The family of this 101-nucleotide sequence from Desulforamulus aquiferis is "Guanidine-I riboswitch aptamer". Rfam links the family to the GO term regulation of gene expression. The organism belongs to Desulforamulus, within Bacteria. Pairs were carried over by alignment from the consensus structure.
RNA sequence: GGAAAGUGUACCUAGGGUUCCACAGCUCCAUAGGGAGUUGGUUCGGUCCAAGCGGUACAGGCGCAUUUGCGCUACACCAGAGGGAUAAAAGCCCAGGCGGU
Numbered sequence: 001g002g003a004a005a006g007u008g009u010a011c012c013u014a015g016g017g018u019u020c021c022a023c024a025g026c027u028c029c030a031u032a033g034g035g036a037g038u039u040g041g042u043u044c045g046g047u048c049c050a051a052g053c054g055g056u057a058c059a060g061g062c063g064c065a066u067u068u069g070c071g072c073u074a075c076a077c078c079a080g081a082g083g084g085a086u087a088a089a090a091g092c093c094c095a096g097g098c099g100g101u
Base pairs, nucleotide, nucleotide: 007059008058009057010056011055012054015049016048020046021045022043023040024039025038026037027036028035060073061072062071063070064069075096077099082094083093084092